[Rfam]
RNA: Small nucleolar RNA SNORD19
Organism: Pelodiscus sinensis
RNA sequence: GAGCUAUGAGGAAGAUAUCAACAAAGUCUGAGAGAUUACUGAUGACUGUAAGAUCCAACUCUGAGCUCGCUGUCUUA
Numbered sequence: 001g002a003g004c005u006a007u008g009a010g011g012a013a014g015a016u017a018u019c020a021a022c023a024a025a026g027u028c029u030g031a032g033a034g035a036u037u038a039c040u041g042a043u044g045a046c047u048g049u050a051a052g053a054u055c056c057a058a059c060u061c062u063g064a065g066c067u068c069g070c071u072g073u074c075u076u077a
Stems, first nucleotide, its partner, number of pairs: 001068004